A member of the RNA family "Ribosomal protein L20 leader" from Secundilactobacillus malefermentans, 136 nucleotides long.

[Rfam]
RNA sequence: GAGAAAAAGUAGAGGCUCCCGCUUCUCGCCUUAAUAAUUUUAGAUUGUUGGGCAAAAUACGAUUAAACCUGAAUUUUCGCAAGAAUGACAGGACUUAAUUUGGCGGGCGCAAAAGCGCUCGCCUUUUUAUUUUAAU
Numbered sequence: 001g002a003g004a005a006a007a008a009g010u011a012g013a014g015g016c017u018c019c020c021g022c023u024u025c026u027c028g029c030c031u032u033a034a035u036a037a038u039u040u041u042a043g044a045u046u047g048u049u050g051g052g053c054a055a056a057a058u059a060c061g062a063u064u065a066a067a068c069c070u071g072a073a074u075u076u077u078c079g080c081a082a083g084a085a086u087g088a089c090a091g092g093a094c095u096u097a098a099u100u101u102g103g104c105g106g107g108c109g110c111a112a113a114a115g116c117g118c119u120c121g122c123c124u125u126u127u128u129a130u131u132u133u134a135a136u
Stems, first nucleotide, its partner, number of pairs: 011026006028053003034048005102123009
The family's consensus secondary structure was predicted with CMfinder. Its family is annotated with regulation of gene expression in the Gene Ontology. By type it is a cis-regulatory leader. A reference for the family is Zengel and Lindahl (1994), "Diverse mechanisms for regulating ribosomal protein synthesis in Escherichia coli", Prog Nucleic Acid Res Mol Biol. About the family: This family is a putative r-protein leader autoregulatory structure found in B. subtilis and other low-GC Gram-positive bacteria. It is located in the 5' untranslated regions of mRNAs encoding initiation factor 3 followed by ribosomal proteins L35 and L20 (infC-rpmI-rplT). A Rho-independent transcription terminator structure that is probably involved in regulation is included at the 3' end.